[Rfam]
RNA sequence: GCCGGCCGCGCGGGAGAGCGCGCGGUGCGGAGCGAUCCGCGCCUCGCCACCGAAGGAGCAACCGCCCCGGAAACUCUCAGGUUCGCAGGACCGCGCAGGCUGG
Numbered sequence: 001g002c003c004g005g006c007c008g009c010g011c012g013g014g015a016g017a018g019c020g021c022g023c024g025g026u027g028c029g030g031a032g033c034g035a036u037c038c039g040c041g042c043c044u045c046g047c048c049a050c051c052g053a054a055g056g057a058g059c060a061a062c063c064g065c066c067c068c069g070g071a072a073a074c075u076c077u078c079a080g081g082u083u084c085g086c087a088g089g090a091c092c093g094c095g096c097a098g099g100c101u102g103g
Stems, first nucleotide, its partner, number of pairs: 006098001008096006020047003049082003052078002056076003062070002